The record is a 153-nucleotide RNA from Marispirochaeta aestuarii, which matches "FMN riboswitch aptamer (RFN element)" in Rfam. It scores 100 bits against the family's covariance model.
[Rfam]
RNA sequence: CCCGGUUUUCGGGGCAGGGUGCGUCGAUCUGAUUCUUCGACAAUUCCCGACCGGCGGUUAAAGUCCGCGAGUUCUCGGCGAUAUUCGCUGAAAGAGAGCUGAACCGGUGAAAUUCCGGUACCGACGGUACAGUCCGGAUGGGAGAAAACCAGU
Numbered sequence: 001c002c003c004g005g006u007u008u009u010c011g012g013g014g015c016a017g018g019g020u021g022c023g024u025c026g027a028u029c030u031g032a033u034u035c036u037u038c039g040a041c042a043a044u045u046c047c048c049g050a051c052c053g054g055c056g057g058u059u060a061a062a063g064u065c066c067g068c069g070a071g072u073u074c075u076c077g078g079c080g081a082u083a084u085u086c087g088c089u090g091a092a093a094g095a096g097a098g099c100u101g102a103a104c105c106g107g108u109g110a111a112a113u114u115c116c117g118g119u120a121c122c123g124a125c126g127g128u129a130c131a132g133u134c135c136g137g138a139u140g141g142g143a144g145a146a147a148a149c150c151a152g153u
Stems, first nucleotide, its partner, number of pairs: 004150007017048003050133002052123002054068004063121002071099006103119005125136003